[Rfam]
RNA sequence: GCCGCCCGCCUCGUGGUCGUCUUCUCACCGUGCACGGGCGGGGGGCGCACAAGCGGCGGGGCCCGGGUGGACGUGACACCCGGGCCCCGCCG
Numbered sequence: 001g002c003c004g005c006c007c008g009c010c011u012c013g014u015g016g017u018c019g020u021c022u023u024c025u026c027a028c029c030g031u032g033c034a035c036g037g038g039c040g041g042g043g044g045g046c047g048c049a050c051a052a053g054c055g056g057c058g059g060g061g062c063c064c065g066g067g068u069g070g071a072c073g074u075g076a077c078a079c080c081c082g083g084g085c086c087c088c089g090c091c092g
Stems, first nucleotide, its partner, number of pairs: 002044002005042007013035003019029001054092016
RNA: sodF sRNA
Organism: Streptomyces sp. AJS327